The family of this 143-nucleotide RNA from Arabidopsis lyrata is "Brassica rapa small nucleolar RNA 775". Rfam describes the family as follows. Name based on close proximity to miR775. Precursors of both are encoded by a single gene sno-miR775. By type it is an H/ACA-box small nucleolar RNA. For this family Rfam cites "Promoter-based identification of novel non-coding RNAs reveals the presence of dicistronic snoRNA-miRNA genes in Arabidopsis thaliana" (Qu et al., BMC Genomics, 2015). Gene Ontology terms of the family: nucleolus and RNA processing.
RNA sequence: GUUUUAUAUCGUUGAAGUUAGAUUAAGCAAUUAGUGGUUUUUGUUUUUUUUGGUUUAUGGGUUGAUUUUUUGAUAAAGAUAAAGAUGCCUCUUCUUUCAGCAGCAAGAUCUAUACUUGUUAGCUUUGUUCUGGAGGCACAUAU
Numbered sequence: 001g002u003u004u005u006a007u008a009u010c011g012u013u014g015a016a017g018u019u020a021g022a023u024u025a026a027g028c029a030a031u032u033a034g035u036g037g038u039u040u041u042u043g044u045u046u047u048u049u050u051u052g053g054u055u056u057a058u059g060g061g062u063u064g065a066u067u068u069u070u071u072g073a074u075a076a077a078g079a080u081a082a083a084g085a086u087g088c089c090u091c092u093u094c095u096u097u098c099a100g101c102a103g104c105a106a107g108a109u110c111u112a113u114a115c116u117u118g119u120u121a122g123c124u125u126u127g128u129u130c131u132g133g134a135g136g137c138a139c140a141u142a143u
Stems, first nucleotide, its partner, number of pairs: 008054004014048004021040002086138007099124003102120006